RNA sequence: CUGCAAGCGGGAGAUGGCAUUCCUCCCUAAAACCGCCCUGCGGGGCUAAUGAUGCCUACGGGCCU
Numbered sequence: 001c002u003g004c005a006a007g008c009g010g011g012a013g014a015u016g017g018c019a020u021u022c023c024u025c026c027c028u029a030a031a032a033c034c035g036c037c038c039u040g041c042g043g044g045g046c047u048a049a050u051g052a053u054g055c056c057u058a059c060g061g062g063c064c065u
Stems, first nucleotide, its partner, number of pairs: 010026004016056006035046004

Shown here is a 65-nucleotide RNA from Paraburkholderia caffeinitolerans, a member of the family "Fluoride riboswitch aptamer (crcB RNA motif)". The family's consensus secondary structure is taken from published work. The literature on the family includes a 2017 paper in Nat Chem Biol by Zhao et al., "An excited state underlies gene regulation of a transcriptional riboswitch". The match comes from Rfam's covariance-model search (49 bits).